[Rfam]
RNA sequence: CUCUUCCUGCCUCUCACUAGCUUCAUCCCUUCGAACCCGAAGGUACUAAGGUAAGGAACUAUUGGGAAGCAGGAACAG
Numbered sequence: 001c002u003c004u005u006c007c008u009g010c011c012u013c014u015c016a017c018u019a020g021c022u023u024c025a026u027c028c029c030u031u032c033g034a035a036c037c038c039g040a041a042g043g044u045a046c047u048a049a050g051g052u053a054a055g056g057a058a059c060u061a062u063u064g065g066g067a068a069g070c071a072g073g074a075a076c077a078g
Base pairs, nucleotide, nucleotide: 001078002077004075005074006073007072008071009070010069012067014065015064016063018061019060020059022057023056024055026053028051029050030049031048033046035044036043037042

A member of the RNA family "MIR1219 microRNA precursor family" from Physcomitrium patens, 78 nucleotides long. The family's consensus secondary structure was predicted with RNAalifold. Rfam 15.1 lists 6 matches to the family in 2 species.